[Rfam]
Description
A member of the RNA family "permuted transfer-messenger RNA" from Pikeienuella piscinae, 209 nucleotides long. The family's RNA type in Rfam is non-coding RNA gene. The literature on the family includes a 2002 paper in Nucleic Acids Res by Williams, "The tmRNA Website: invasion by an intron". Bacterial tmRNA, also known as 10Sa RNA or SsrA, is named for its dual tRNA and mRNA-like properties. Its role is to liberate the mRNA from a stalled ribosome. To accomplish this part of the tmRNA is used as a reading frame that ends in a translation stop signal. The match comes from Rfam's covariance-model search (143 bits).
RNA sequence: GGUGAUAAACGCGCACGUAAUACACGGAUCGGACCCGGGGGCGGUACCCGGCGGCUCCACCAACACCCGUUCAUUGGCGGGCGAGGGGCCGAAACAGGAUCGACGGACGUCUAAAGGUGUUUGCUUUCACCCGGUGAGCCACCACCGUUAUCGGUGCAAAUUGUACAGUUGCCAAUGACAACCGUGCUCCGGUGGCCGUUGCUGCGUAA
Numbered sequence: 001g002g003u004g005a006u007a008a009a010c011g012c013g014c015a016c017g018u019a020a021u022a023c024a025c026g027g028a029u030c031g032g033a034c035c036c037g038g039g040g041g042c043g044g045u046a047c048c049c050g051g052c053g054g055c056u057c058c059a060c061c062a063a064c065a066c067c068c069g070u071u072c073a074u075u076g077g078c079g080g081g082c083g084a085g086g087g088g089c090c091g092a093a094a095c096a097g098g099a100u101c102g103a104c105g106g107a108c109g110u111c112u113a114a115a116g117g118u119g120u121u122u123g124c125u126u127u128c129a130c131c132c133g134g135u136g137a138g139c140c141a142c143c144a145c146c147g148u149u150a151u152c153g154g155u156g157c158a159a160a161u162u163g164u165a166c167a168g169u170u171g172c173c174a175a176u177g178a179c180a181a182c183c184g185u186g187c188u189c190c191g192g193u194g195g196c197c198g199u200u201g202c203u204g205c206g207u208a209a
Base pairs, nucleotide, nucleotide: 001131002130003129004128005127013120014119015118016117025109026108029106030105031104035051036050037049038048039047052091053090054089055088056087057086058085132147133146134145135144